The record is a 276-nucleotide RNA from Paenibacillus tyrphae, which matches "glmS glucosamine-6-phosphate activated ribozyme aptamer" in Rfam. A search with the family's covariance model found it, with a score of 71 bits. This entry contains a glucosamine-6-phosphate activated ribozyme that is found in the mRNA for GlmS. GlmS is an enzyme that uses fructose-6-phosphate and glutamine to generate glucosamine-6-phosphate. Taxonomically the source falls in Paenibacillus (Bacteria, Bacillota, Bacilli, Paenibacillaceae).
RNA sequence: UUAGCAAGACAAGCGCCAGGACUGGAUGGCUUAUCCGGGGCUGCUUGAUUUUCUGCGAAUUCGGUCACAGGGUCUGUCGCCGCGGGAAGCGGCGGGUAAUGGACUCCACUAUCUCUUAGACAACGCAGGAAGCGGGUAUCUCAGGUUGGCACCAGUUGACGAGGUGAAGGUGUUCGAAACAUUCGGCGGGGACCUUCCGGCCAUCGAUCCAGCCGUAUCGUCAAAACUGAAAACGUCCGGGCGACCGGACCGACAAAGUUAUUGACGGGAUCUUAC
Numbered sequence: 001u002u003a004g005c006a007a008g009a010c011a012a013g014c015g016c017c018a019g020g021a022c023u024g025g026a027u028g029g030c031u032u033a034u035c036c037g038g039g040g041c042u043g044c045u046u047g048a049u050u051u052u053c054u055g056c057g058a059a060u061u062c063g064g065u066c067a068c069a070g071g072g073u074c075u076g077u078c079g080c081c082g083c084g085g086g087a088a089g090c091g092g093c094g095g096g097u098a099a100u101g102g103a104c105u106c107c108a109c110u111a112u113c114u115c116u117u118a119g120a121c122a123a124c125g126c127a128g129g130a131a132g133c134g135g136g137u138a139u140c141u142c143a144g145g146u147u148g149g150c151a152c153c154a155g156u157u158g159a160c161g162a163g164g165u166g167a168a169g170g171u172g173u174u175c176g177a178a179a180c181a182u183u184c185g186g187c188g189g190g191g192a193c194c195u196u197c198c199g200g201c202c203a204u205c206g207a208u209c210c211a212g213c214c215g216u217a218u219c220g221u222c223a224a225a226a227c228u229g230a231a232a233a234c235g236u237c238c239g240g241g242c243g244a245c246c247g248g249a250c251c252g253a254c255a256a257a258g259u260u261a262u263u264g265a266c267g268g269g270a271u272c273u274u275a276c
Stems, first nucleotide, its partner, number of pairs: 020157006166197005174186004198215004220266005226260001235250006